[Rfam]
RNA: Small nucleolar RNA SNORD102
RNA sequence: AGCUUAAUGAUGAUUGUCUUUUUGAUCGUUUAAAGCGAUGUGAAAACCCCAUUUCACCGGCUCUGAAAGCU
Numbered sequence: 001a002g003c004u005u006a007a008u009g010a011u012g013a014u015u016g017u018c019u020u021u022u023u024g025a026u027c028g029u030u031u032a033a034a035g036c037g038a039u040g041u042g043a044a045a046a047c048c049c050c051a052u053u054u055c056a057c058c059g060g061c062u063c064u065g066a067a068a069g070c071u
Stems, first nucleotide, its partner, number of pairs: 001071005
Dot-bracket structure: (((((.............................................................)))))